[Rfam]
RNA sequence: AAAAAAGCAGGGUUCUAUUGACUCUAUGAAUAGAUCUCUCGUAAAAUUCAGGAAAAUCACUUCAUUGUUUUUGGGUGAACCUCUGAGGUGUUAUUAAGGACAGAAGGUUCAGUAACCGAUGGUACAUGA
Numbered sequence: 001a002a003a004a005a006a007g008c009a010g011g012g013u014u015c016u017a018u019u020g021a022c023u024c025u026a027u028g029a030a031u032a033g034a035u036c037u038c039u040c041g042u043a044a045a046a047u048u049c050a051g052g053a054a055a056a057u058c059a060c061u062u063c064a065u066u067g068u069u070u071u072u073g074g075g076u077g078a079a080c081c082u083c084u085g086a087g088g089u090g091u092u093a094u095u096a097a098g099g100a101c102a103g104a105a106g107g108u109u110c111a112g113u114a115a116c117c118g119a120u121g122g123u124a125c126a127u128g129a
Stems, first nucleotide, its partner, number of pairs: 005048002011037002014034004062122006069115001076111007